[Rfam]
RNA sequence: AAAAAGGGUCGGUUGGCUAAAUAUGCCACGUUCAUCCGAUGGGUGAGUGCUGUAUGGAAAUCAAGACAUAUGGCCGACAUAAUUUGUGGACUUUUAUAGGGUUGGCUCUCCUUGGUCGACCCUCCC
Numbered sequence: 001a002a003a004a005a006g007g008g009u010c011g012g013u014u015g016g017c018u019a020a021a022u023a024u025g026c027c028a029c030g031u032u033c034a035u036c037c038g039a040u041g042g043g044u045g046a047g048u049g050c051u052g053u054a055u056g057g058a059a060a061u062c063a064a065g066a067c068a069u070a071u072g073g074c075c076g077a078c079a080u081a082a083u084u085u086g087u088g089g090a091c092u093u094u095u096a097u098a099g100g101g102u103u104g105g106c107u108c109u110c111c112u113u114g115g116u117c118g119a120c121c122c123u124c125c126c
Stems, first nucleotide, its partner, number of pairs: 008078005014028004029049009050073007098123008109115002
This 126-nucleotide sequence from Cuscuta australis belongs to the Rfam family "U11 spliceosomal RNA".
The source organism's lineage runs through Eukaryota, Viridiplantae, Streptophyta, Spermatophyta and Cuscuta sect. Cleistogrammica.
Pairs were carried over by alignment from the consensus structure, which is taken from published work.
On this family, see Montzka and Steitz, Proc Natl Acad Sci U S A 1988: "Additional low-abundance human small nuclear ribonucleoproteins: U11, U12, etc".
Clan: U1 clan.